The record is an 85-nucleotide sequence from Monodelphis domestica, which matches "mir-425 microRNA precursor family" in Rfam. Pairs were carried over by alignment from the consensus structure, which was predicted with RNAalifold. Rfam links the family to the GO terms RISC complex and miRNA-mediated post-transcriptional gene silencing.
RNA sequence: AAAGUGCUUUGGAAUGACACGAUCACUCCCGUUGAGCGGACAGCCAAGAAGCCAUCGGGAAUAUCGUGUCCGUCCAAUGCUCUUU
Numbered sequence: 001a002a003a004g005u006g007c008u009u010u011g012g013a014a015u016g017a018c019a020c021g022a023u024c025a026c027u028c029c030c031g032u033u034g035a036g037c038g039g040a041c042a043g044c045c046a047a048g049a050a051g052c053c054a055u056c057g058g059g060a061a062u063a064u065c066g067u068g069u070c071c072g073u074c075c076a077a078u079g080c081u082c083u084u085u
Stems, first nucleotide, its partner, number of pairs: 006080002009077004016070008027060005033054002036052002